Source information
The family of this 269-nucleotide RNA from Nocardioides sp. HDW12B is "raiA RNA". NCBI's taxonomy places the organism under Bacteria, Bacillati, Actinomycetota, Propionibacteriales, Nocardioides. Pairs were carried over by alignment from the consensus structure, which is taken from published work. The family's RNA type in Rfam is riboswitch. The match comes from Rfam's covariance-model search (133 bits).
RNA sequence: UCCGUCCGGGUCCGUGGUUGCGCCGAGGAGGUGCGUCCCGGCUCGUCACGAGUCGUCGACGUCUCCUGGCUAGCCGAUGCCAGUCGCAGGCGAAACGGUCCACGUAAGAGCCCCUCGCGGGCUCGAUCACGGUGCGGCUUAGAGGUAAGUCCUGCCGUCGCGGGGGCGUCAGAUGCGCCCCCGGCCGGCGAGAAGGCGGGUAGUGGCGGAGAAGCUGCGAGAGCCUCAGCAGGCGGUUGUGGGGUCGAAGACCAGGUCGGCCGGGCGGA
Numbered sequence: 001u002c003c004g005u006c007c008g009g010g011u012c013c014g015u016g017g018u019u020g021c022g023c024c025g026a027g028g029a030g031g032u033g034c035g036u037c038c039c040g041g042c043u044c045g046u047c048a049c050g051a052g053u054c055g056u057c058g059a060c061g062u063c064u065c066c067u068g069g070c071u072a073g074c075c076g077a078u079g080c081c082a083g084u085c086g087c088a089g090g091c092g093a094a095a096c097g098g099u100c101c102a103c104g105u106a107a108g109a110g111c112c113c114c115u116c117g118c119g120g121g122c123u124c125g126a127u128c129a130c131g132g133u134g135c136g137g138c139u140u141a142g143a144g145g146u147a148a149g150u151c152c153u154g155c156c157g158u159c160g161c162g163g164g165g166g167c168g169u170c171a172g173a174u175g176c177g178c179c180c181c182c183g184g185c186c187g188g189c190g191a192g193a194a195g196g197c198g199g200g201u202a203g204u205g206g207c208g209g210a211g212a213a214g215c216u217g218c219g220a221g222a223g224c225c226u227c228a229g230c231a232g233g234c235g236g237u238u239g240u241g242g243g244g245u246c247g248a249a250g251a252c253c254a255g256g257u258c259g260g261c262c263g264g265g266c267g268g269a
Stems, first nucleotide, its partner, number of pairs: 001269009012260003015254005077240003080090001082139007099132002104127001108124006130247001151233005156190005194226004203218002